[Rfam]
The family of this 105-nucleotide RNA from Sphingobium wenxiniae is "Repression of heat shock gene expression (ROSE) element". On this family, see Nocker et al., Nucleic Acids Res 2001: "A mRNA-based thermosensor controls expression of rhizobial heat shock genes". This family represents a 5' UTR cis-regulatory element found in heat shock mRNAs and is known as the ROSE (repression of heat shock gene expression) element. The ROSE element is a negative regulator of heat shock gene expression. The base pairs follow the family's consensus structure, which is taken from published work. The family's RNA type in Rfam is RNA thermoregulator.

RNA sequence: CCGGGUGCCAAUUCCGGGUCCGGCUGGACAUAGAGGGCGCCGGCUCUCCAUUCCCGGCGCUUCUCAUGCCCAAAUUGCUUCAGUUGGAGGAUUUGGAGAUGAGAA
Numbered sequence: 001c002c003g004g005g006u007g008c009c010a011a012u013u014c015c016g017g018g019u020c021c022g023g024c025u026g027g028a029c030a031u032a033g034a035g036g037g038c039g040c041c042g043g044c045u046c047u048c049c050a051u052u053c054c055c056g057g058c059g060c061u062u063c064u065c066a067u068g069c070c071c072a073a074a075u076u077g078c079u080u081c082a083g084u085u086g087g088a089g090g091a092u093u094u095g096g097a098g099a100u101g102a103g104a105a
Stems, first nucleotide, its partner, number of pairs: 001023006008017002035062002038059006063103005070096007078089003